SAM (S-adenosyl methionine) riboswitch aptamer: a 117-nucleotide RNA from Leucobacter sp. cx-87.
Pairs were carried over by alignment from the consensus structure, which is taken from published work.
On this family, see Weinberg et al., RNA 2008: "The aptamer core of SAM-IV riboswitches mimics the ligand-binding site of SAM-I riboswitches".
A search with the family's covariance model found it, with a score of 63 bits.
RNA sequence: GUUCAAGAGUCGUAGCCGUAGGUACCUGGCCGGUUACGCGACAACCCGAAUCCAUCGAUUCCCGGGUGUCCCAGGGGAAGAACGGGCCCACGAAAUAUCGUGGUGCAAGAUUCGAUG
Numbered sequence: 001g002u003u004c005a006a007g008a009g010u011c012g013u014a015g016c017c018g019u020a021g022g023u024a025c026c027u028g029g030c031c032g033g034u035u036a037c038g039c040g041a042c043a044a045c046c047c048g049a050a051u052c053c054a055u056c057g058a059u060u061c062c063c064g065g066g067u068g069u070c071c072c073a074g075g076g077g078a079a080g081a082a083c084g085g086g087c088c089c090a091c092g093a094a095a096u097a098u099c100g101u102g103g104u105g106c107a108a109g110a111u112u113c114g115a116u117g
Base pairs, nucleotide, nucleotide: 001083002082003081004080009039011038012037013036014035015034016033021031022030040070041069042068045066046065047064086106087105088103089102090101091100092099093098
Dot-bracket structure: ((((....(.((((((....((.......)).)))))))(((..(((................))).))).........))))..((((((((....)))))).))...........